[Rfam]
The family of this 399-nucleotide RNA sequence from Sphingobium wenxiniae is "Bacterial RNase P class A". Ribonuclease P (RNase P) is a ubiquitous endoribonuclease, found in archaea, bacteria and eukarya as well as chloroplasts and mitochondria. By type it is a ribozyme. The match comes from Rfam's covariance-model search (290 bits).

RNA sequence: CCAGAGGGCCGGGCGACCGCGGCGUGGAGAGGUACUUUCACGGCGAGGAAAGUCCGGGCUCCACGAAAUGACGGUGCCGGCUAACGGCCGGCUGGAGUGAUCCAAGGGACAGUGCAACAGAAAGCAGGUCGCCCAGUCUUUGAGACUAAGCCUUCGGGCAGGCGAAAUUGAAAGGGUGCGGUAAGAGCGCACCGCGUCUCCGGCAACGGAAGACGGCACGGUAAACCCCACCGGGAGCAAGACCGAAUAGGGGCGGCGCGCAGCUCGACUGCUAGGCCUGUUUCGGCCGAGACCGCCCGGGUUGGUUGCUUGAGGGGCGGAGCAAUCCGUCCCCUAGAGGAAUGGUCGCCUAUCCCCGCAAGGGGUGGACAGAACCCGGCUUACAGGCCCUCUGGCAUU
Numbered sequence: 001c002c003a004g005a006g007g008g009c010c011g012g013g014c015g016a017c018c019g020c021g022g023c024g025u026g027g028a029g030a031g032g033u034a035c036u037u038u039c040a041c042g043g044c045g046a047g048g049a050a051a052g053u054c055c056g057g058g059c060u061c062c063a064c065g066a067a068a069u070g071a072c073g074g075u076g077c078c079g080g081c082u083a084a085c086g087g088c089c090g091g092c093u094g095g096a097g098u099g100a101u102c103c104a105a106g107g108g109a110c111a112g113u114g115c116a117a118c119a120g121a122a123a124g125c126a127g128g129u130c131g132c133c134c135a136g137u138c139u140u141u142g143a144g145a146c147u148a149a150g151c152c153u154u155c156g157g158g159c160a161g162g163c164g165a166a167a168u169u170g171a172a173a174g175g176g177u178g179c180g181g182u183a184a185g186a187g188c189g190c191a192c193c194g195c196g197u198c199u200c201c202g203g204c205a206a207c208g209g210a211a212g213a214c215g216g217c218a219c220g221g222u223a224a225a226c227c228c229c230a231c232c233g234g235g236a237g238c239a240a241g242a243c244c245g246a247a248u249a250g251g252g253g254c255g256g257c258g259c260g261c262a263g264c265u266c267g268a269c270u271g272c273u274a275g276g277c278c279u280g281u282u283u284c285g286g287c288c289g290a291g292a293c294c295g296c297c298c299g300g301g302u303u304g305g306u307u308g309c310u311u312g313a314g315g316g317g318c319g320g321a322g323c324a325a326u327c328c329g330u331c332c333c334c335u336a337g338a339g340g341a342a343u344g345g346u347c348g349c350c351u352a353u354c355c356c357c358g359c360a361a362g363g364g365g366u367g368g369a370c371a372g373a374a375c376c377c378g379g380c381u382u383a384c385a386g387g388c389c390c391u392c393u394g395g396c397a398u399u
Stems, first nucleotide, its partner, number of pairs: 001395010011384001012350007020045002023042006050382003054379005059237004067283002072233005077091005092106001093104004107228002112226002114222002129167001131163003137157001175193006194217001195215005200209003241307004251298006275288004314333008